Rfam assigns this 60-nucleotide RNA sequence from Cereibacter ovatus to the family "terC RNA". By type it is a cis-regulatory element. Rfam 15.1 lists 1,112 matches to the family in 772 species.
RNA sequence: AUCGGUGUCCGGGCCCCUCUGGCGAAAGCAUGCGGCGCUUUCGUGAUGUCGGCACCUUCA
Numbered sequence: 001a002u003c004g005g006u007g008u009c010c011g012g013g014c015c016c017c018u019c020u021g022g023c024g025a026a027a028g029c030a031u032g033c034g035g036c037g038c039u040u041u042c043g044u045g046a047u048g049u050c051g052g053c054a055c056c057u058u059c060a
Base pairs, nucleotide, nucleotide: 006054007053009052010051011050012049022044023043024042025041026040027039028038029037

Lineage of the source: Bacteria > Pseudomonadati > Pseudomonadota > Rhodobacterales > Cereibacter.